[Rfam]
RNA: MIR854 microRNA precursor family
RNA sequence: UGGAUGACGAUUGCGCAGUGGAGUUCGACACUAGCAUGUAUCACUUUGGUGAAGAUGUACCUCCAGCGAGGCAGAGCAAGAGCUUGACCGAAGCUCAUAAGAACAAAAGUAAAUUGCAGAAGUGGUGCAAGAAGCAGGACAAGUUGCUCGCCAAGUGUUUCAAGGCUAUCAAGCUUCUGACAGAUAAGCUGAGUUGUUCCUCCUCCACCACAGCUAUUCCA
Numbered sequence: 001u002g003g004a005u006g007a008c009g010a011u012u013g014c015g016c017a018g019u020g021g022a023g024u025u026c027g028a029c030a031c032u033a034g035c036a037u038g039u040a041u042c043a044c045u046u047u048g049g050u051g052a053a054g055a056u057g058u059a060c061c062u063c064c065a066g067c068g069a070g071g072c073a074g075a076g077c078a079a080g081a082g083c084u085u086g087a088c089c090g091a092a093g094c095u096c097a098u099a100a101g102a103a104c105a106a107a108a109g110u111a112a113a114u115u116g117c118a119g120a121a122g123u124g125g126u127g128c129a130a131g132a133a134g135c136a137g138g139a140c141a142a143g144u145u146g147c148u149c150g151c152c153a154a155g156u157g158u159u160u161c162a163a164g165g166c167u168a169u170c171a172a173g174c175u176u177c178u179g180a181c182a183g184a185u186a187a188g189c190u191g192a193g194u195u196g197u198u199c200c201u202c203c204u205c206c207a208c209c210a211c212a213g214c215u216a217u218u219c220c221a
Base pairs, nucleotide, nucleotide: 001221002220003219004218011210013208015205018202020200021199022198023197024196